This 103-nucleotide sequence from Aquimarina aggregata belongs to the Rfam family "SAM riboswitch aptamer (S box leader)". Rfam links the family to the GO term regulation of gene expression.

RNA sequence: CUGUUAUCAAGAAAGGUGGAGGGAAUAGACCCUAUGAAGCCUUAGCAACCCUUUAUAUAAUAAAGAAGGUGCUACAUUCUAUCCCACUGGGACUAGAUAACGA
Number, nucleotide and partner (000 for none) at each position: 001c000002u102003g101004u100005u099006a098007u097008c096009a000010a000011g000012a000013a043014a042015g041016g040017u039018g000019g000020a000021g032022g031023g030024a000025a000026u081027a080028g079029a078030c023031c022032c021033u000034a000035u000036g000037a000038a000039g017040c016041c015042u014043u013044a073045g072046c071047a070048a000049c069050c068051c065052u064053u063054u062055a000056u000057a000058u000059a000060a000061u000062a054063a053064a052065g051066a000067a000068g050069g049070u047071g046072c045073u044074a000075c000076a000077u095078u029079c028080u027081a026082u092083c091084c090085c089086a000087c000088u000089g085090g084091g083092a082093c000094u000095a077096g008097a007098u006099a005100a004101c003102g002103a000
The base pairs follow the family's consensus structure, which is taken from published work.
Lineage of the source: Bacteria > Bacteroidota > Flavobacteriales > Flavobacteriaceae > Aquimarina.